[Rfam]
RNA sequence: AAACCAGAAGAAUAAAGCCCUCAUAUAAUUUCGGGGAUAUGGCCCGUAAGUCUCUACCUGAUGACCGUAUAUUUCAUCAGACUAUGAGGGAAAGCAUCUUUCUG
Numbered sequence: 001a002a003a004c005c006a007g008a009a010g011a012a013u014a015a016a017g018c019c020c021u022c023a024u025a026u027a028a029u030u031u032c033g034g035g036g037a038u039a040u041g042g043c044c045c046g047u048a049a050g051u052c053u054c055u056a057c058c059u060g061a062u063g064a065c066c067g068u069a070u071a072u073u074u075c076a077u078c079a080g081a082c083u084a085u086g087a088g089g090g091a092a093a094g095c096a097u098c099u100u101u102c103u104g
Stems, first nucleotide, its partner, number of pairs: 018090008029049002032046004058080007
Overview:
A member of the RNA family "Purine riboswitch aptamer" from Fictibacillus arsenicus, 104 nucleotides long. The organism belongs to Fictibacillus, within Bacteria. Pairs were carried over by alignment from the consensus structure, which is taken from published work. Clan: Purine riboswitches.